[Rfam]
RNA sequence: CAGUUAAAAAGCUCGUAGUUGAACGUUGGGCCCGGCCGGGCGGUCCGCCAUUUGGCGAGUACUGUUUUUUUCGGCGGGGUCUUUUCCUUCUGAACCACCUUUUGGGGUUGGCUCAGGAUUUUUACUUUGAAAAAAUUAGAGUGUUCAAAGCAGGCCUUUGCUCGAAUAUAUUAGCAUGGAAUAAUAAAAUAGGACGUUUAUGGUUCUAUUUUGUUGGUUUCUAGGACCAUCGUAAUGAUUAAUAGGGACGGUCGGGGGCAUCAGUAUUCAGUUGUCAGAGGUGAAAUUCUUGGAUUUACUGAAGACUAACUACUGCGAAAGCAUUUGCCAAGGACGUUUUCAUUAAUCAAGAACGAAAGUUAGGGGAUCGAAGAUGAUCAGAUACCGUCGUAGUCUUAACCAUAAACUAUGCCGACUAGGGAUCGGGCGGAGUUUCUUAAUUAUUAGACCCGCUCGGCACCUUACGAGAAAUCAAAGUUUUUGGGUUCUGGGGGGAGUAUGGUCGCAAGGCUGAAACUUAAAGGAAU
Numbered sequence: 001c002a003g004u005u006a007a008a009a010a011g012c013u014c015g016u017a018g019u020u021g022a023a024c025g026u027u028g029g030g031c032c033c034g035g036c037c038g039g040g041c042g043g044u045c046c047g048c049c050a051u052u053u054g055g056c057g058a059g060u061a062c063u064g065u066u067u068u069u070u071u072c073g074g075c076g077g078g079g080u081c082u083u084u085u086c087c088u089u090c091u092g093a094a095c096c097a098c099c100u101u102u103u104g105g106g107g108u109u110g111g112c113u114c115a116g117g118a119u120u121u122u123u124a125c126u127u128u129g130a131a132a133a134a135a136u137u138a139g140a141g142u143g144u145u146c147a148a149a150g151c152a153g154g155c156c157u158u159u160g161c162u163c164g165a166a167u168a169u170a171u172u173a174g175c176a177u178g179g180a181a182u183a184a185u186a187a188a189a190u191a192g193g194a195c196g197u198u199u200a201u202g203g204u205u206c207u208a209u210u211u212u213g214u215u216g217g218u219u220u221c222u223a224g225g226a227c228c229a230u231c232g233u234a235a236u237g238a239u240u241a242a243u244a245g246g247g248a249c250g251g252u253c254g255g256g257g258g259c260a261u262c263a264g265u266a267u268u269c270a271g272u273u274g275u276c277a278g279a280g281g282u283g284a285a286a287u288u289c290u291u292g293g294a295u296u297u298a299c300u301g302a303a304g305a306c307u308a309a310c311u312a313c314u315g316c317g318a319a320a321g322c323a324u325u326u327g328c329c330a331a332g333g334a335c336g337u338u339u340u341c342a343u344u345a346a347u348c349a350a351g352a353a354c355g356a357a358a359g360u361u362a363g364g365g366g367a368u369c370g371a372a373g374a375u376g377a378u379c380a381g382a383u384a385c386c387g388u389c390g391u392a393g394u395c396u397u398a399a400c401c402a403u404a405a406a407c408u409a410u411g412c413c414g415a416c417u418a419g420g421g422a423u424c425g426g427g428c429g430g431a432g433u434u435u436c437u438u439a440a441u442u443a444u445u446a447g448a449c450c451c452g453c454u455c456g457g458c459a460c461c462u463u464a465c466g467a468g469a470a471a472u473c474a475a476a477g478u479u480u481u482u483g484g485g486u487u488c489u490g491g492g493g494g495g496a497g498u499a500u501g502g503u504c505g506c507a508a509g510g511c512u513g514a515a516a517c518u519u520a521a522a523g524g525a526a527u
Base pairs, nucleotide, nucleotide: 001490002489003488009487011354013352014351018347019346020345245341246340247339248338249336250335252333253332257329258328259327260326263307264306267303268302269301270300271299272298274296278289279288280287315322316321359400360399361398362397363396364395369393373389374388375387376386411486412485413484414479415478416477418462419461420460423457424456425455426454427453428452429451430450432449433448434447466473467472492519493518494517501512502511503510504509

Eukaryotic small subunit ribosomal RNA: a 527-nucleotide part of an RNA from Brettanomyces nanus. It scores 1799 bits against the family's covariance model. The base pairs follow the family's consensus structure, which is taken from published work. The organism belongs to Brettanomyces, within Eukaryota. The family is grouped with related families in Rfam's "SSU clan". Rfam 15.1 lists 75,755 matches to the family in 2,556 species.